[Rfam]
The family of this 168-nucleotide sequence from Solirubrobacter pauli is "c-di-AMP riboswitch aptamer (ydaO/yuaA leader)". This family represents a conserved RNA structure found upstream of the ydaO and yuaA genes in Bacillus subtilis and related genes in other bacteria. The match comes from Rfam's covariance-model search (68 bits).
RNA sequence: AAUUCAGCAACGCCGAGUCCGCUCGCCUUCCGAGGUGGGCGGAACGGGGGACCCAAACGGCCAUGGUCAGGCCGACUUUGGGGCGAAUCGCCGCCUGGUUGGCGGCGUAGCGCAGGCCUUUGCGCGAGCCCGACAGCUAACCCCGUAGGCACGAGGCCCUAAGGAGUG
Numbered sequence: 001a002a003u004u005c006a007g008c009a010a011c012g013c014c015g016a017g018u019c020c021g022c023u024c025g026c027c028u029u030c031c032g033a034g035g036u037g038g039g040c041g042g043a044a045c046g047g048g049g050g051a052c053c054c055a056a057a058c059g060g061c062c063a064u065g066g067u068c069a070g071g072c073c074g075a076c077u078u079u080g081g082g083g084c085g086a087a088u089c090g091c092c093g094c095c096u097g098g099u100u101g102g103c104g105g106c107g108u109a110g111c112g113c114a115g116g117c118c119u120u121u122g123c124g125c126g127a128g129c130c131c132g133a134c135a136g137c138u139a140a141c142c143c144c145g146u147a148g149g150c151a152c153g154a155g156g157c158c159c160u161a162a163g164g165a166g167u168g
Stems, first nucleotide, its partner, number of pairs: 012150003018043011044146006054080004081131003089107004110125004
Dot-bracket structure: ...........(((...(((((((((((....)))))))))))((((((....((((...................))))(((.....((((...........))))..((((........))))...))).........)))))).)))..................